This 372-nucleotide RNA belongs to the Rfam family "Bacterial RNase P class A".
It is annotated as a ribozyme.
The match comes from Rfam's covariance-model search (305 bits).
RNA sequence: UGAGUUGAGUAGAUGGUCGCGUCCCGAUCGUAACCUUACCAUCGGGAUGAGGAAAGUCCGGACUCCACAGGGCAGGAUGCUGGGUAACACCCAGGAGCGGCGACGCUAUGGAAAGUGCAACAGAGAGUAGACUACAACGCCUGCUUUUAUAUAGAAAGUUGGGCGUUGUACAGGUGAAACGGUGCGGUAAAAGCGCACCAGUCCAUAAGGUGACUUAUGGAGCUCGGUAAACCCCAUCUGGAGCAAGGUAAAAGGGGGACAUAUACAGGUGUGCCCGCCUCGUCCCCAGGUAACCGCUUGAGGUGGAUGGUAACAUCCAUCCCAGAUGAAUGACUGUCACAUACAGAAUCCGGCUUAUUCUCAACUCAAGCU
Numbered sequence: 001u002g003a004g005u006u007g008a009g010u011a012g013a014u015g016g017u018c019g020c021g022u023c024c025c026g027a028u029c030g031u032a033a034c035c036u037u038a039c040c041a042u043c044g045g046g047a048u049g050a051g052g053a054a055a056g057u058c059c060g061g062a063c064u065c066c067a068c069a070g071g072g073c074a075g076g077a078u079g080c081u082g083g084g085u086a087a088c089a090c091c092c093a094g095g096a097g098c099g100g101c102g103a104c105g106c107u108a109u110g111g112a113a114a115g116u117g118c119a120a121c122a123g124a125g126a127g128u129a130g131a132c133u134a135c136a137a138c139g140c141c142u143g144c145u146u147u148u149a150u151a152u153a154g155a156a157a158g159u160u161g162g163g164c165g166u167u168g169u170a171c172a173g174g175u176g177a178a179a180c181g182g183u184g185c186g187g188u189a190a191a192a193g194c195g196c197a198c199c200a201g202u203c204c205a206u207a208a209g210g211u212g213a214c215u216u217a218u219g220g221a222g223c224u225c226g227g228u229a230a231a232c233c234c235c236a237u238c239u240g241g242a243g244c245a246a247g248g249u250a251a252a253a254g255g256g257g258g259a260c261a262u263a264u265a266c267a268g269g270u271g272u273g274c275c276c277g278c279c280u281c282g283u284c285c286c287c288a289g290g291u292a293a294c295c296g297c298u299u300g301a302g303g304u305g306g307a308u309g310g311u312a313a314c315a316u317c318c319a320u321c322c323c324a325g326a327u328g329a330a331u332g333a334c335u336g337u338c339a340c341a342u343a344c345a346g347a348a349u350c351c352g353g354c355u356u357a358u359u360c361u362c363a364a365c366u367c368a369a370g371c372u
Stems, first nucleotide, its partner, number of pairs: 001368009011358001012338007020049009054356003058353005063243004070275002075239005080094005095109001096107004110234002115232002117228002132173002134169009181199006201223001202221008247295003255287006268278001302321008